[Rfam]
RNA sequence: AAAGGAUCACACGACUGGCGGAAGUGGAGUUCACCACAGGGAGUGUGAUUUAUAUCGUAAAGCCGACCGCCUGGGCAAUCGAU
Numbered sequence: 001a002a003a004g005g006a007u008c009a010c011a012c013g014a015c016u017g018g019c020g021g022a023a024g025u026g027g028a029g030u031u032c033a034c035c036a037c038a039g040g041g042a043g044u045g046u047g048a049u050u051u052a053u054a055u056c057g058u059a060a061a062g063c064c065g066a067c068c069g070c071c072u073g074g075g076c077a078a079u080c081g082a083u
Stems, first nucleotide, its partner, number of pairs: 004051009015040002017071005024037004062076003

Rfam assigns this 83-nucleotide RNA sequence from Heliobacterium mobile to the family "ZMP/ZTP riboswitch aptamer (pfl RNA motif)".